[Rfam]
RNA sequence: GCCUCGCGCCUGAAAGGGCGACGGCAGUGCCGGAGCGAGAAGUCAGCAGAGGCCGUAGUAGUGCGAGUCGGGGGCCGAUGAGGCAGAACCAAAAGCACGAAGGGC
Number, nucleotide and partner (000 for none) at each position: 001g025002c024003c000004u023005c000006g000007c020008g019009c018010c017011u016012g000013a000014a000015a000016g011017g010018g009019c008020g007021a000022c000023g004024g002025c001026a000027g000028u000029g000030c000031c000032g000033g000034a000035g000036c000037g000038a000039g000040a000041a000042g000043u050044c049045a000046g000047c000048a000049g044050a043051g000052g105053c104054c103055g000056u000057a000058g000059u000060a000061g098062u097063g096064c095065g000066a000067g000068u000069c000070g000071g000072g000073g000074g000075c000076c000077g000078a000079u000080g000081a000082g000083g000084c000085a000086g000087a000088a000089c000090c000091a000092a000093a000094a000095g064096c063097a062098c061099g000100a000101a000102g000103g054104g053105c052
This 105-nucleotide RNA sequence from Rhizobacter sp. Root1221 belongs to the Rfam family "Group II catalytic intron D1-D4-1". From the family's description: Group II introns are found in rRNA, tRNA and mRNA of organelles in fungi, plants and protists, and also in mRNA in bacteria. Taxonomically the source falls in Rhizobacter (Bacteria, Pseudomonadati, Pseudomonadota, Betaproteobacteria). Pairs were carried over by alignment from the consensus structure.